[Rfam]
RNA sequence: UUCCUGCUAUAAGUAGUGGUGCCGCAGGUACGGUUCUCACACUACCUGCACACAACUGCUUACAGUCAGGG
Numbered sequence: 001u002u003c004c005u006g007c008u009a010u011a012a013g014u015a016g017u018g019g020u021g022c023c024g025c026a027g028g029u030a031c032g033g034u035u036c037u038c039a040c041a042c043u044a045c046c047u048g049c050a051c052a053c054a055a056c057u058g059c060u061u062a063c064a065g066u067c068a069g070g071g
Base pairs, nucleotide, nucleotide: 001071002070003069006066007065010062011061012060013059014058015057016056017055019053024049025048026047027046028045029044030043
A member of the RNA family "mir-252 microRNA precursor family" from Candidula unifasciata, 71 nucleotides long.
Taxonomically the source falls in Candidula (Eukaryota, Metazoa, Bilateria, Lophotrochozoa).
A search with the family's covariance model found it, with a score of 50 bits.